[Rfam]
RNA sequence: AAAAAAGGGUUUUGUUGUGAGUGCCACACGUAGGGCAGCUUGAUUGCUCUACAUGCUGAAUCGACAUCAAGAGAUUUCAAAAGCAUAAUUUUUUGGUAUCUGGGCAGCUGGUGAUCAUUGGUCCUGGUGCCCCC
Numbered sequence: 001a002a003a004a005a006a007g008g009g010u011u012u013u014g015u016u017g018u019g020a021g022u023g024c025c026a027c028a029c030g031u032a033g034g035g036c037a038g039c040u041u042g043a044u045u046g047c048u049c050u051a052c053a054u055g056c057u058g059a060a061u062c063g064a065c066a067u068c069a070a071g072a073g074a075u076u077u078c079a080a081a082a083g084c085a086u087a088a089u090u091u092u093u094u095g096g097u098a099u100c101u102g103g104g105c106a107g108c109u110g111g112u113g114a115u116c117a118u119u120g121g122u123c124c125u126g127g128u129g130c131c132c133c134c
Stems, first nucleotide, its partner, number of pairs: 008084001010082003013026002016023002027055002030052009058077005102132004107128005113123004
Source information: The family of this 134-nucleotide RNA sequence from Myotis myotis is "U11 spliceosomal RNA". By type it is a spliceosomal small nuclear RNA.